[Rfam]
RNA sequence: AAAAUGCUAUGACGAAUCGUGAAACUUUCGCAUGUCAGACUUCAGAGAUGCUUAUGGCAUUAAUGAGAAGAUUCUUUCAUAUUCUGAGCAUAAU
Numbered sequence: 001a002a003a004a005u006g007c008u009a010u011g012a013c014g015a016a017u018c019g020u021g022a023a024a025c026u027u028u029c030g031c032a033u034g035u036c037a038g039a040c041u042u043c044a045g046a047g048a049u050g051c052u053u054a055u056g057g058c059a060u061u062a063a064u065g066a067g068a069a070g071a072u073u074c075u076u077u078c079a080u081a082u083u084c085u086g087a088g089c090a091u092a093a094u
Stems, first nucleotide, its partner, number of pairs: 001094001004091004047061004